Annotation:
U11 spliceosomal RNA: a 125-nucleotide sequence from Coffea arabica. For this family Rfam cites "Evolution of spliceosomal snRNA genes in metazoan animals" (Marz et al., J Mol Evol, 2008). It scores 72 bits against the family's covariance model. Rfam classes the family as a spliceosomal small nuclear RNA. Clan: U1 clan.
[Rfam]
RNA sequence: UAAAAGGGUCGGUUGGCUAAAUAUGCCGCUCUUGCCCGCGUUGGUGAGAGCUGUAUGGCUAUCAAGACAUAUGGCCGACAUAAUUUGUGGAGCCUGUAGGGUUGGUUCGCUGGGCCGACCCUCCA
Numbered sequence: 001u002a003a004a005a006g007g008g009u010c011g012g013u014u015g016g017c018u019a020a021a022u023a024u025g026c027c028g029c030u031c032u033u034g035c036c037c038g039c040g041u042u043g044g045u046g047a048g049a050g051c052u053g054u055a056u057g058g059c060u061a062u063c064a065a066g067a068c069a070u071a072u073g074g075c076c077g078a079c080a081u082a083a084u085u086u087g088u089g090g091a092g093c094c095u096g097u098a099g100g101g102u103u104g105g106u107u108c109g110c111u112g113g114g115c116c117g118a119c120c121c122u123c124c125a
Stems, first nucleotide, its partner, number of pairs: 008079005014028004029050008051074007098122011